[Rfam]
The record is a 72-nucleotide RNA sequence from Poecilia reticulata, which matches "tRNA" in Rfam.
The organism belongs to Poecilia, within Eukaryota.
The match comes from Rfam's covariance-model search (65 bits).
RNA sequence: GGUUCUGUGGUGUAAUGGUUAGCACUCUGGACUUUGAAUCCAGCAAUCUGAGUUCAAGUCUCAGUAGAACCU
Numbered sequence: 001g002g003u004u005c006u007g008u009g010g011u012g013u014a015a016u017g018g019u020u021a022g023c024a025c026u027c028u029g030g031a032c033u034u035u036g037a038a039u040c041c042a043g044c045a046a047u048c049u050g051a052g053u054u055c056a057a058g059u060c061u062c063a064g065u066a067g068a069a070c071c072u
Base pairs, nucleotide, nucleotide: 001071002070003069004068005067006066007065010025011024012023013022027043028042029041030040031039048064049063050062051061052060